A member of the RNA family "Group II catalytic intron D1-D4-7" from Zestomonas carbonaria, 149 nucleotides long. Rfam 15.1 lists 1,296 matches to the family in 705 species. Group II introns are found in rRNA, tRNA and mRNA of organelles in fungi, plants and protists, and also in mRNA in bacteria. The literature on the family includes a 2001 paper in Trends Genet by Bonen and Vogel, "The ins and outs of group II introns". Gene Ontology term of the family: Group II intron splicing.
RNA sequence: CUCGUUGUACGACCAACGAUAGCCUAGGGAGACAUGCGUCACUGGUAACGGUGGGGUAUGAAGCUUUCCCGACAAUGUAGCCCCCUUUCAGGGUGCGUCUUUGCCGUGAGGCGAGGCGCAGACGCUCGGAGCAGUACCGGGUCGAGGCG
Numbered sequence: 001c002u003c004g005u006u007g008u009a010c011g012a013c014c015a016a017c018g019a020u021a022g023c024c025u026a027g028g029g030a031g032a033c034a035u036g037c038g039u040c041a042c043u044g045g046u047a048a049c050g051g052u053g054g055g056g057u058a059u060g061a062a063g064c065u066u067u068c069c070c071g072a073c074a075a076u077g078u079a080g081c082c083c084c085c086u087u088u089c090a091g092g093g094u095g096c097g098u099c100u101u102u103g104c105c106g107u108g109a110g111g112c113g114a115g116g117c118g119c120a121g122a123c124g125c126u127c128g129g130a131g132c133a134g135u136a137c138c139g140g141g142u143c144g145a146g147g148c149g
Stems, first nucleotide, its partner, number of pairs: 002019006028069005033060005039054006084093003094120004104111002124142006